[Rfam]
RNA sequence: ACCCAAAAACAUCAAGAAAAGCCUUUCAAUAAAUUGCUUUUUUCUUGGCGAAAGAAAGCAGCGGUAAAGAGGGAGCUCGGGACUUAUGAUCCGGGUCUCUUUGUUCCUUUUUUUUUUCCCAGAAAAUAAUUUUUAGGACCAAUUACCGUAGUUGCGACUACAACAAUUGUUGUUCAUACCCCCACGAUUUACUUUUUGAAAACUAGUUUUUGGAAUAAUAAUGUAAAAUUUCCCUUUUUCCACCCCAAUUUGUAUUUAAUUUUUCGUUACAAAAUUGGGACUAAUAUUAAGGGCGACAGUU
Numbered sequence: 001a002c003c004c005a006a007a008a009a010c011a012u013c014a015a016g017a018a019a020a021g022c023c024u025u026u027c028a029a030u031a032a033a034u035u036g037c038u039u040u041u042u043u044c045u046u047g048g049c050g051a052a053a054g055a056a057a058g059c060a061g062c063g064g065u066a067a068a069g070a071g072g073g074a075g076c077u078c079g080g081g082a083c084u085u086a087u088g089a090u091c092c093g094g095g096u097c098u099c100u101u102u103g104u105u106c107c108u109u110u111u112u113u114u115u116u117u118c119c120c121a122g123a124a125a126a127u128a129a130u131u132u133u134u135a136g137g138a139c140c141a142a143u144u145a146c147c148g149u150a151g152u153u154g155c156g157a158c159u160a161c162a163a164c165a166a167u168u169g170u171u172g173u174u175c176a177u178a179c180c181c182c183c184a185c186g187a188u189u190u191a192c193u194u195u196u197u198g199a200a201a202a203c204u205a206g207u208u209u210u211u212g213g214a215a216u217a218a219u220a221a222u223g224u225a226a227a228a229u230u231u232c233c234c235u236u237u238u239u240c241c242a243c244c245c246c247a248a249u250u251u252g253u254a255u256u257u258a259a260u261u262u263u264u265c266g267u268u269a270c271a272a273a274a275u276u277g278g279g280a281c282u283a284a285u286a287u288u289a290a291g292g293g294c295g296a297c298a299g300u301u
Base pairs, nucleotide, nucleotide: 003213004212005211006210007209008208009207010206025200026199027198028197029196030191031190032189033188034187035186036185040126041125042124043123044122045121047120048119050118051117052116053115054114055113056112057111058110060108061107068102069101070100072098073097074096076095077094078093079092080091081090083088136175137174138173139172140169141168142167143166144165148161149160150159151158152157232293233292234291235290236289244279245278246277247276248275249274250273251272252270253269254268
Dot-bracket structure: ..((((((((..............((((((((((((...((((((.((.(((((((((.((......(((.(((.((((((.(....).))))))))).)))....)).))))))))))))))))).........(((((((((...(((((....)))))...)))))..)))).........)))))))....))))).....))))))))..................(((((.......(((((((((((.............))).)))))))).........)))))........

The family of this 301-nucleotide sequence from Saccharomyces paradoxus is "Small nucleolar RNA snR83". The literature on the family includes a 2004 paper in Nucleic Acids Res by Schattner et al., "Genome-wide searching for pseudouridylation guide snoRNAs: analysis of the Saccharomyces cerevisiae genome". The family is grouped with related families in Rfam's "SNORA4 clan". The family's consensus secondary structure was predicted with WAR.